[Rfam]
RNA sequence: AUGAAGGACGCGGAAGAGUAUCCCCACCGGGAUCGCCGACGAAGCAAAUUACGGGUAGCCAACCCGUUGAUGAAUCUUUCAGGCUCCAACACCGUGUCUCGACA
Numbered sequence: 001a002u003g004a005a006g007g008a009c010g011c012g013g014a015a016g017a018g019u020a021u022c023c024c025c026a027c028c029g030g031g032a033u034c035g036c037c038g039a040c041g042a043a044g045c046a047a048a049u050u051a052c053g054g055g056u057a058g059c060c061a062a063c064c065c066g067u068u069g070a071u072g073a074a075u076c077u078u079u080c081a082g083g084c085u086c087c088a089a090c091a092c093c094g095u096g097u098c099u100c101g102a103c104a
Stems, first nucleotide, its partner, number of pairs: 006099008020033004035084003038080002042078003048071004
RNA: Glycine riboswitch aptamer